[Rfam]
RNA sequence: GCAUAGCCAUGGUGUCCAAAAACAAUACCUUUGGGUUUUCCUGGGCAUAUCAUACACUAGGCAAGGGAGGAGGUUUUAGUCCGUAGGGUACUGACAUGACUCAGUACAGUUGGGCAUGCUACAACGUACGGGGGUUGUGGUAUCCAUGAGGAUUUCCUCCUUCC
Numbered sequence: 001g002c003a004u005a006g007c008c009a010u011g012g013u014g015u016c017c018a019a020a021a022a023c024a025a026u027a028c029c030u031u032u033g034g035g036u037u038u039u040c041c042u043g044g045g046c047a048u049a050u051c052a053u054a055c056a057c058u059a060g061g062c063a064a065g066g067g068a069g070g071a072g073g074u075u076u077u078a079g080u081c082c083g084u085a086g087g088g089u090a091c092u093g094a095c096a097u098g099a100c101u102c103a104g105u106a107c108a109g110u111u112g113g114g115c116a117u118g119c120u121a122c123a124a125c126g127u128a129c130g131g132g133g134g135u136u137g138u139g140g141u142a143u144c145c146a147u148g149a150g151g152a153u154u155u156c157c158u159c160c161u162u163c164c
Stems, first nucleotide, its partner, number of pairs: 013047006066163008079115005088107006117142006

Rfam assigns this 164-nucleotide RNA sequence from Ignelater luminosus to the family "R2 RNA element". The literature on the family includes a 2004 paper in RNA by Ruschak et al., "Secondary structure models of the 3' untranslated regions of diverse R2 RNAs". Lineage of the source: Eukaryota > Allotriocarida > Neoptera > Elateroidea > Ignelater. It scores 40 bits against the family's covariance model. By type it is a cis-regulatory element.